[Rfam]
The record is a 159-nucleotide RNA sequence from Streptomyces fagopyri, which matches "c-di-AMP riboswitch aptamer (ydaO/yuaA leader)" in Rfam.
RNA sequence: AAUCCGCACUCACCCGUACACGGCAGGAGCGGGGGACCCACAGGUAUCGCGCCUGUUCCGGUCUCCGGAACGGCUAGGGGUACAGCCGCGCCGCCGCGCGGCCGGACAUCUCCAGUCCGCACCCGACAGCUCACCUCGCAGGCGCCGGAGAGGAAAUGA
Number, nucleotide and partner (000 for none) at each position: 001a000002a000003u028004c027005c026006g000007c000008a000009c000010u000011c000012a000013c000014c000015c000016g000017u000018a000019c000020a000021c000022g000023g000024c000025a000026g005027g004028a003029g139030c138031g137032g136033g135034g134035g000036a000037c000038c000039c077040a000041c000042a000043g000044g000045u000046a000047u000048c000049g000050c000051g000052c000053c000054u000055g000056u000057u000058c000059c000060g000061g000062u000063c000064u000065c000066c000067g000068g000069a000070a000071c000072g000073g000074c000075u000076a000077g039078g124079g123080g122081u000082a000083c000084a000085g000086c101087c100088g099089c098090g000091c000092c000093g000094c000095c000096g000097c000098g089099c088100g087101g086102c000103c000104g118105g117106a116107c115108a000109u000110c000111u000112c000113c000114a000115g107116u106117c105118c104119g000120c000121a000122c080123c079124c078125g000126a000127c000128a000129g000130c000131u000132c000133a000134c034135c033136u032137c031138g030139c029140a000141g000142g000143c000144g000145c000146c000147g000148g000149a000150g000151a000152g000153g000154a000155a000156a000157u000158g000159a000
It scores 56 bits against the family's covariance model. Rfam 15.1 lists 7,607 matches to the family in 2,262 species. The organism belongs to Streptomyces, within Bacteria.